Overview
The record is a 115-nucleotide RNA from Pseudomonas panipatensis, which matches "Pseudomon-groES RNA" in Rfam. It scores 101 bits against the family's covariance model. The organism belongs to Pseudomonas, within Bacteria. The family's RNA type in Rfam is cis-regulatory element.
RNA sequence: GUAGCAGGCACCGCAAGGUCCCUGUCGCUUGGACAGGCUGUCUUACGCGGCUCGCCCGUCGAGCCGCAAACCGGCGAAGCCGGAUUCAACAAAACUUGCCGGACAUUGAUCCGGC
Numbered sequence: 001g002u003a004g005c006a007g008g009c010a011c012c013g014c015a016a017g018g019u020c021c022c023u024g025u026c027g028c029u030u031g032g033a034c035a036g037g038c039u040g041u042c043u044u045a046c047g048c049g050g051c052u053c054g055c056c057c058g059u060c061g062a063g064c065c066g067c068a069a070a071c072c073g074g075c076g077a078a079g080c081c082g083g084a085u086u087c088a089a090c091a092a093a094a095c096u097u098g099c100c101g102g103a104c105a106u107u108g109a110u111c112c113g114g115c
Base pairs, nucleotide, nucleotide: 010019011018012017021037022036023035024034025033026032047067048066049065050064051063052062053061054060071083072082073081074080098115099114100113101112102111103110